[Rfam]
Record summary:
The family of this 113-nucleotide RNA from Diatraea saccharalis is "Potassium channel RNA editing signal". Its family is annotated with adenosine to inosine editing in the Gene Ontology. The match comes from Rfam's covariance-model search (76 bits).
RNA sequence: CCAGGUACGGUGACAUGGUGCCUGGCACGAUAGCUGGCAAGAUAGUGGGCGGCGUAUGUUCACUGUCCGGUGUGCUCGUGAUCGCCCUGCCCGUCCCCGUCAUAGUGUCCAAC
Numbered sequence: 001c002c003a004g005g006u007a008c009g010g011u012g013a014c015a016u017g018g019u020g021c022c023u024g025g026c027a028c029g030a031u032a033g034c035u036g037g038c039a040a041g042a043u044a045g046u047g048g049g050c051g052g053c054g055u056a057u058g059u060u061c062a063c064u065g066u067c068c069g070g071u072g073u074g075c076u077c078g079u080g081a082u083c084g085c086c087c088u089g090c091c092c093g094u095c096c097c098c099g100u101c102a103u104a105g106u107g108u109c110c111a112a113c
Stems, first nucleotide, its partner, number of pairs: 004109001006107003010103001012101003017096002020094002036076004049061001

Pairs were carried over by alignment from the consensus structure, which is taken from published work.